[Rfam]
RNA sequence: ACUCCGGUUGAUCCUGCCGGACCCUACUGCUAUCGGGGUAAGGCUAAGCCAUGCAAGUCGUAGGCCUCGGGGCAUCCCGGGGCCUGGCGCACGGCUGAGUAACGCGUGGCUAACCUACCCUGCGGAGGGGGAUAACCCCGGGAAACUGGGGAUAAACCCCCAUAGGUGAGCAGCUCUGGAACGACUGCUCGCCGAAAACCCUCUGCGGGGACCCUCCGCUGAGGGGCCGCAGGAUGGGGCUGCGUCCUAUCAGGUAGUUGGUGGGGUAAUGGCCCACCAAGCCUGAGACGGGUAGGGGCCCUGAGAGGGGGAGCCCCCAGAUGGACUCUGAGACAAGAGUCCAGGCCCUACGGGGCGCAGCAGGCGCGAAAACUCCGCAAUGGGCGAAAGCCCGACGGGGUUACCCCGAGUGCCACCCUCGUGGUGGCUUUUGCCCGCUGUAAACAGGCGGGCGAAUAAGGGGAGGGCAAGUCGGGUGUCAGCCGCCGCGGUAAUACCCGCUCCCCGAGUGGUAGGGACUAUUACUG
Numbered sequence: 001a002c003u004c005c006g007g008u009u010g011a012u013c014c015u016g017c018c019g020g021a022c023c024c025u026a027c028u029g030c031u032a033u034c035g036g037g038g039u040a041a042g043g044c045u046a047a048g049c050c051a052u053g054c055a056a057g058u059c060g061u062a063g064g065c066c067u068c069g070g071g072g073c074a075u076c077c078c079g080g081g082g083c084c085u086g087g088c089g090c091a092c093g094g095c096u097g098a099g100u101a102a103c104g105c106g107u108g109g110c111u112a113a114c115c116u117a118c119c120c121u122g123c124g125g126a127g128g129g130g131g132a133u134a135a136c137c138c139c140g141g142g143a144a145a146c147u148g149g150g151g152a153u154a155a156a157c158c159c160c161c162a163u164a165g166g167u168g169a170g171c172a173g174c175u176c177u178g179g180a181a182c183g184a185c186u187g188c189u190c191g192c193c194g195a196a197a198a199c200c201c202u203c204u205g206c207g208g209g210g211a212c213c214c215u216c217c218g219c220u221g222a223g224g225g226g227c228c229g230c231a232g233g234a235u236g237g238g239g240c241u242g243c244g245u246c247c248u249a250u251c252a253g254g255u256a257g258u259u260g261g262u263g264g265g266g267u268a269a270u271g272g273c274c275c276a277c278c279a280a281g282c283c284u285g286a287g288a289c290g291g292g293u294a295g296g297g298g299c300c301c302u303g304a305g306a307g308g309g310g311g312a313g314c315c316c317c318c319a320g321a322u323g324g325a326c327u328c329u330g331a332g333a334c335a336a337g338a339g340u341c342c343a344g345g346c347c348c349u350a351c352g353g354g355g356c357g358c359a360g361c362a363g364g365c366g367c368g369a370a371a372a373c374u375c376c377g378c379a380a381u382g383g384g385c386g387a388a389a390g391c392c393c394g395a396c397g398g399g400g401u402u403a404c405c406c407c408g409a410g411u412g413c414c415a416c417c418c419u420c421g422u423g424g425u426g427g428c429u430u431u432u433g434c435c436c437g438c439u440g441u442a443a444a445c446a447g448g449c450g451g452g453c454g455a456a457u458a459a460g461g462g463g464a465g466g467g468c469a470a471g472u473c474g475g476g477u478g479u480c481a482g483c484c485g486c487c488g489c490g491g492u493a494a495u496a497c498c499c500g501c502u503c504c505c506c507g508a509g510u511g512g513u514a515g516g517g518a519c520u521a522u523u524a525c526u527g
Stems, first nucleotide, its partner, number of pairs: 004020005022517010033409009042367001048365003052362003057088003062085010095320003104245008114237002119233007127161004136151006166192008175184002199225005246292003253283003258280008295317004299310004322343006345356004373399001375398003381394005412428006433453007460506006473500004482489002
RNA: Archaeal small subunit ribosomal RNA, nucleotides 1 to 527